This 204-nucleotide RNA sequence from Nannospalax galili belongs to the Rfam family "Small nucleolar RNA SNORA73 family". Clan: snR30-U17 clan. The literature on the family includes a 1996 paper in RNA by Enright et al., "5'ETS rRNA processing facilitated by four small RNAs: U14, E3, U17, and U3". Its family is annotated with nucleolus and RNA processing in the Gene Ontology. NCBI's taxonomy places the organism under Eukaryota, Chordata, Tetrapoda, Mammalia, Nannospalax. U17 (SNORA73A and SNORA73B) also known as E1 belongs to the H/ACA class of small nucleolar RNAs (snoRNAs). Vertebrate U17 is intron-encoded and ranges in length from 200-230 nucleotides, longer than most snoRNAs. It is one of the most abundant snoRNAs in human cells and is essential for the cleavage of pre-rRNA within the 5' external transcribed spacer (ETS). This cleavage leads to the formation of 18S rRNA. Regions of the U17 RNA are complementary to rRNA and act as guides for RNA/RNA interactions, although these regions do not seem to be well conserved between organisms. It is annotated as an H/ACA-box small nucleolar RNA.
RNA sequence: CUAAUGUGGAUAUCCUGGGAGGUCACUCUCCCUGGGCUCUGUCCUAGUGGAGUAGGGGGGCAUAGGGCUCUGCCCCAUGACCUACAGUCCCUUUGCGCAAUGUUGGAGACGAAGCUGGGGUUUGAGUCUGCCCCUGCAUAUUCCCAUGACUUCUCAGAGUCCUGUGGACAAUGACUGGGGAGACAAACCACACAGAAAACAGAC
Numbered sequence: 001c002u003a004a005u006g007u008g009g010a011u012a013u014c015c016u017g018g019g020a021g022g023u024c025a026c027u028c029u030c031c032c033u034g035g036g037c038u039c040u041g042u043c044c045u046a047g048u049g050g051a052g053u054a055g056g057g058g059g060g061c062a063u064a065g066g067g068c069u070c071u072g073c074c075c076c077a078u079g080a081c082c083u084a085c086a087g088u089c090c091c092u093u094u095g096c097g098c099a100a101u102g103u104u105g106g107a108g109a110c111g112a113a114g115c116u117g118g119g120g121u122u123u124g125a126g127u128c129u130g131c132c133c134c135u136g137c138a139u140a141u142u143c144c145c146a147u148g149a150c151u152u153c154u155c156a157g158a159g160u161c162c163u164g165u166g167g168a169c170a171a172u173g174a175c176u177g178g179g180g181a182g183a184c185a186a187a188c189c190a191c192a193c194a195g196a197a198a199a200c201a202g203a204c
Stems, first nucleotide, its partner, number of pairs: 001106007008044005014036003018029004047098003056091004060085001062083001065078001134195003139190001150182006159169004